[Rfam]
RNA sequence: ACAGGCUCAAAGUUGUAGCAGAAGCAAUCAUGGUGUGGCUUUGUCAGAUUCCAAUGAAACUGUGAAUUCUGCU
Dot-bracket structure: ........[.[[[[..((((((((((.......)))]]]]]...(((.(((....))).)))....)))))))
RNA: Mammalian CPEB3 ribozyme